Record summary: The record is a 118-nucleotide RNA from Alkaliphilus sp., which matches "FMN riboswitch aptamer (RFN element)" in Rfam. A search with the family's covariance model found it, with a score of 108 bits.
[Rfam]
RNA sequence: AUAUUCCUUCAGGGCAGGGUUAAAUUCCCGACCGGCGGUAAAGUCCGCGAGUGGCGCAAGCUUCUGAACUGGUUUGAUUCCAGUACCGACAGUAAAGUCUGGAUGGUAGAAGGACGAA
Numbered sequence: 001a002u003a004u005u006c007c008u009u010c011a012g013g014g015c016a017g018g019g020u021u022a023a024a025u026u027c028c029c030g031a032c033c034g035g036c037g038g039u040a041a042a043g044u045c046c047g048c049g050a051g052u053g054g055c056g057c058a059a060g061c062u063u064c065u066g067a068a069c070u071g072g073u074u075u076g077a078u079u080c081c082a083g084u085a086c087c088g089a090c091a092g093u094a095a096a097g098u099c100u101g102g103a104u105g106g107u108a109g110a111a112g113g114a115c116g117a118a
Stems, first nucleotide, its partner, number of pairs: 005114006017029003031098002033088002035048004043086002051064001053062001068084005090101003
The family's consensus secondary structure is taken from published work. The RFN element is a highly conserved domain that is found frequently in the 5'-untranslated regions of prokaryotic mRNAs that encode for flavin mononucleotide (FMN) biosynthesis and transport proteins. The source organism's lineage runs through Bacteria, Bacillota, Clostridia, Natronincolaceae and Alkaliphilus.